[Rfam]
Y RNA: a 98-nucleotide RNA sequence from Pan troglodytes.
Y RNAs are components of the Ro ribonucleoprotein particle (Ro RNP), in association with Ro60 and La proteins. The Y RNAs and Ro60 and La proteins are well conserved, but the function of the Ro RNP is not known. In humans the RNA component can be one of four small RNAs -- hY1, hY3, hY4 and hY5. These small RNAs are predicted to fold into a conserved secondary structure containing three stem structures.
The match comes from Rfam's covariance-model search (63 bits).
The family's RNA type in Rfam is non-coding RNA gene.
RNA sequence: GGCUGGUCAAAGUACAGUGGUGUUUACAACUAAUUGAUCACAACUGGUUAUUUCUUUGUGUCUUCUCCACUCCCACUGUUUUACUUGACUAGCUUAAA
Numbered sequence: 001g002g003c004u005g006g007u008c009a010a011a012g013u014a015c016a017g018u019g020g021u022g023u024u025u026a027c028a029a030c031u032a033a034u035u036g037a038u039c040a041c042a043a044c045u046g047g048u049u050a051u052u053u054c055u056u057u058g059u060g061u062c063u064u065c066u067c068c069a070c071u072c073c074c075a076c077u078g079u080u081u082u083a084c085u086u087g088a089c090u091a092g093c094u095u096a097a098a
Base pairs, nucleotide, nucleotide: 001094002093003092004091005090006089007088008087010086011085014082016077017076018075019074020073022072029059030058032056033055